[Rfam]
RNA sequence: GGAAUGUAAGAUUCCAUCUUUUAACUUUUAACUAAAAAAACUAAGAACCGGUUCUUAAAUAAGAGUUCUAAGAGCCGGUUCUUAACUUUUUUAGUUAAAAGUUAAGAGACGGGUUCGUUAAAAACU
Numbered sequence: 001g002g003a004a005u006g007u008a009a010g011a012u013u014c015c016a017u018c019u020u021u022u023a024a025c026u027u028u029u030a031a032c033u034a035a036a037a038a039a040a041c042u043a044a045g046a047a048c049c050g051g052u053u054c055u056u057a058a059a060u061a062a063g064a065g066u067u068c069u070a071a072g073a074g075c076c077g078g079u080u081c082u083u084a085a086c087u088u089u090u091u092u093a094g095u096u097a098a099a100a101g102u103u104a105a106g107a108g109a110c111g112g113g114u115u116c117g118u119u120a121a122a123a124a125c126u
Stems, first nucleotide, its partner, number of pairs: 001126002005122001007120003010116002013113003017109023042084006
Notes: Shown here is a 126-nucleotide RNA from Brassica carinata, a member of the family "MIR9563 microRNA precursor family". Rfam 15.1 lists 5,832 matches to the family in 9 species. NCBI's taxonomy places the organism under Eukaryota, Streptophyta, eudicotyledons, malvids, Brassica. Gene Ontology terms of the family: miRNA-mediated post-transcriptional gene silencing and RISC complex. It scores 93 bits against the family's covariance model.